[Rfam]
Rfam assigns this 74-nucleotide RNA sequence from Dickeya dadantii to the family "tRNA". The match comes from Rfam's covariance-model search (70 bits). Pairs were carried over by alignment from the consensus structure, which is taken from published work.
RNA sequence: GCGACCGUAGCUCAGUUGGUUAGAGCACCACCUUGACAUGGUGGGGGUCGGUGGUUCGAGUCCACUCGGUCGCA
Numbered sequence: 001g002c003g004a005c006c007g008u009a010g011c012u013c014a015g016u017u018g019g020u021u022a023g024a025g026c027a028c029c030a031c032c033u034u035g036a037c038a039u040g041g042u043g044g045g046g047g048u049c050g051g052u053g054g055u056u057c058g059a060g061u062c063c064a065c066u067c068g069g070u071c072g073c074a
Stems, first nucleotide, its partner, number of pairs: 001073007010026004028044005050066005